Shown here is a 109-nucleotide sequence from Aspergillus rambellii, a member of the family "tRNA". Taxonomically the source falls in Aspergillus subgen. Nidulantes (Eukaryota, saccharomyceta, Pezizomycotina, leotiomyceta).
RNA sequence: ACUCCCGUAGCUCAAUCGGUUUAGAGCACCAAGCUUAUAUGACAUGGUAUCAAAAGUACCACUUAUAUGUGCCUCUUGGAGGUUGGGAGUUCGAUCCUCCCCGGGAGUA
Numbered sequence: 001a002c003u004c005c006c007g008u009a010g011c012u013c014a015a016u017c018g019g020u021u022u023a024g025a026g027c028a029c030c031a032a033g034c035u036u037a038u039a040u041g042a043c044a045u046g047g048u049a050u051c052a053a054a055a056g057u058a059c060c061a062c063u064u065a066u067a068u069g070u071g072c073c074u075c076u077u078g079g080a081g082g083u084u085g086g087g088a089g090u091u092c093g094a095u096c097c098u099c100c101c102c103g104g105g106a107g108u109a
Stems, first nucleotide, its partner, number of pairs: 001108007010027004029079005085101005
Overview
By type it is a transfer RNA.